The family of this 71-nucleotide RNA from Myxococcus xanthus is "tRNA".
The family's consensus secondary structure is taken from published work.
Taxonomically the source falls in Myxococcus xanthus (Bacteria, Myxococcota, Cystobacterineae, Myxococcus).
For this family Rfam cites "tRNAscan-SE: a program for improved detection of transfer RNA genes in genomic sequence" (Lowe and Eddy, Nucleic Acids Res, 1997).
RNA sequence: UGGGGCGUCGUCUAAUGGCAGGACAUCAGACUUUGACUCUGAGUAUCAAGGUUCGAAUCCUUGCGCCCCAG
Number, nucleotide and partner (000 for none) at each position: 001u070002g069003g068004g067005g066006c065007g064008u000009c000010g024011u023012c022013u021014a000015a000016u000017g000018g000019c000020a000021g013022g012023a011024c010025a000026u042027c041028a040029g039030a038031c000032u000033u000034u000035g000036a000037c000038u030039c029040u028041g027042a026043g000044u000045a000046u000047c063048a062049a061050g060051g059052u000053u000054c000055g000056a000057a000058u000059c051060c050061u049062u048063g047064c007065g006066c005067c004068c003069c002070a001071g000